[Rfam]
RNA: FMN riboswitch aptamer (RFN element)
Organism: Salibacterium salarium
RNA sequence: UAACUACUUCGGGGUAGGGUGAAAUUCCCAAUCGGCGGUGAUAAAGUAUAAAUCCUUUUUAGUCCGCGACCCGGUACGGGAUUUGUUAAUCCUUAACGGUGGAUCUGGUGAAAAUCCAGAGCCGACAGUGAUAGUCUGGAUGGGAGAAGGAGCAA
Numbered sequence: 001u002a003a004c005u006a007c008u009u010c011g012g013g014g015u016a017g018g019g020u021g022a023a024a025u026u027c028c029c030a031a032u033c034g035g036c037g038g039u040g041a042u043a044a045a046g047u048a049u050a051a052a053u054c055c056u057u058u059u060u061a062g063u064c065c066g067c068g069a070c071c072c073g074g075u076a077c078g079g080g081a082u083u084u085g086u087u088a089a090u091c092c093u094u095a096a097c098g099g100u101g102g103a104u105c106u107g108g109u110g111a112a113a114a115u116c117c118a119g120a121g122c123c124g125a126c127a128g129u130g131a132u133a134g135u136c137u138g139g140a141u142g143g144g145a146g147a148a149g150g151a152g153c154a155a
Stems, first nucleotide, its partner, number of pairs: 004152002007149004017029003031135002033124002035067004062122002071099002104120005126138003